[Rfam]
RNA sequence: GAGUGCGCGAGUGCGUACUCGACACAACACAAAGGGAUUACCUGGGUCUCCCUGCCUGGGUAAUCCUUUU
Numbered sequence: 001g002a003g004u005g006c007g008c009g010a011g012u013g014c015g016u017a018c019u020c021g022a023c024a025c026a027a028c029a030c031a032a033a034g035g036g037a038u039u040a041c042c043u044g045g046g047u048c049u050c051c052c053u054g055c056c057u058g059g060g061u062a063a064u065c066c067u068u069u070u
Base pairs, nucleotide, nucleotide: 001020002019003018004017005016006015007014008013033068034067035066036065037064038063039062040061041060042059043058044057045056046055047054